[Rfam]
RNA sequence: GAUCUCUUCACAGCAAUCAUCAAAACAAUUUAAAGGUCAAAUUAACAAAAAGAGAUCUG
Number, nucleotide and partner (000 for none) at each position: 001g057002a056003u055004c054005u053006c052007u000008u000009c000010a000011c000012a000013g000014c000015a000016a000017u000018c000019a000020u000021c000022a000023a000024a000025a000026c000027a000028a000029u000030u000031u000032a000033a000034a000035g000036g000037u000038c000039a000040a000041a000042u000043u000044a000045a000046c000047a000048a000049a000050a000051a000052g006053a005054g004055a003056u002057c001058u000059g000
RNA: Class I RNA from Dictyostelium